The record is a 71-nucleotide sequence from Huiozyma naganishii, which matches "tRNA" in Rfam. The family's RNA type in Rfam is transfer RNA. The family's consensus secondary structure is taken from published work. Lineage of the source: Eukaryota > Ascomycota > Saccharomycetes > Saccharomycetaceae > Huiozyma naganishii.
[Rfam]
Nucleotides: 071
Stems, first nucleotide, its partner, number of pairs: 001070007010024004026042005047063005
Number, partner (000 for none) and nucleotide at each position: 001070g002069c003068g004067c005066g006065a007064g008000u009000g010024g011023u012022u013021u014000a015000g016000u017000g018000g019000u020000a021013a022012a023011a024010u025000c026042u027041a028040a029039c030038a031000u032000u033000c034000c035000c036000a037000u038030u039029g040028u041027u042026a043000g044000g045000c046000c047063c048062c049061g050060g051059g052000u053000u054000c055000g056000a057000u058000u059051c060050c061049c062048g063047g064007c065006u066005c067004g068003c069002g070001c071000a